[Rfam]
RNA: PyrR binding site
Organism: Staphylococcus massiliensis
RNA sequence: AGCGUCUUUAAAUAAAGUCCAGAGAGGCUUUGAAGACAUGAUGAUAAACGUGAUACGUGUAUACCUAUAGGGAUAAGUAUGCUUAUCUUUAUUUCCAUAUACCUAAAUCCUCAUGUCUCAAAGUAGGCGUGAGGAUUUUUUGUU
Dot-bracket structure: ...((((((....((((((......)))))))))))).................................(((((((....)))))))................(((((((((((((........)))))))))))))......
Numbered sequence: 001a002g003c004g005u006c007u008u009u010a011a012a013u014a015a016a017g018u019c020c021a022g023a024g025a026g027g028c029u030u031u032g033a034a035g036a037c038a039u040g041a042u043g044a045u046a047a048a049c050g051u052g053a054u055a056c057g058u059g060u061a062u063a064c065c066u067a068u069a070g071g072g073a074u075a076a077g078u079a080u081g082c083u084u085a086u087c088u089u090u091a092u093u094u095c096c097a098u099a100u101a102c103c104u105a106a107a108u109c110c111u112c113a114u115g116u117c118u119c120a121a122a123g124u125a126g127g128c129g130u131g132a133g134g135a136u137u138u139u140u141u142g143u144u
Stems, first nucleotide, its partner, number of pairs: 004037006014031006071088007105138013